The record is a 57-nucleotide RNA from Oncorhynchus mykiss, which matches "U7 small nuclear RNA" in Rfam.
A reference for the family is Spycher et al. (1994), "3' end processing of mouse histone pre-mRNA: evidence for additional base-pairing between U7 snRNA and pre-mRNA", Nucleic Acids Res.
The source organism's lineage runs through Eukaryota, Chordata, Craniata, Gnathostomata and Oncorhynchus.
A search with the family's covariance model found it, with a score of 44 bits.
About the family: Animal histone pre-mRNAs are spliced by a different mechanism than nuclear pre-mRNAs and self-splicing introns. This processing involves the U7 snRNP, which contains only one RNA species: U7. The 5' end of U7 RNA is thought to base-pair to a conserved spacer element downstream of the cleavage site in histone pre-mRNA. This family contains a number of annotated U7 pseudogenes.
RNA sequence: GAAUAUUUGCUCUUUUAGUAUUUGUCCAGUAGGUUUCCUUUAAGGAGAAAGACCACA
Numbered sequence: 001g002a003a004u005a006u007u008u009g010c011u012c013u014u015u016u017a018g019u020a021u022u023u024g025u026c027c028a029g030u031a032g033g034u035u036u037c038c039u040u041u042a043a044g045g046a047g048a049a050a051g052a053c054c055a056c057a
Stems, first nucleotide, its partner, number of pairs: 032054003035050002038047003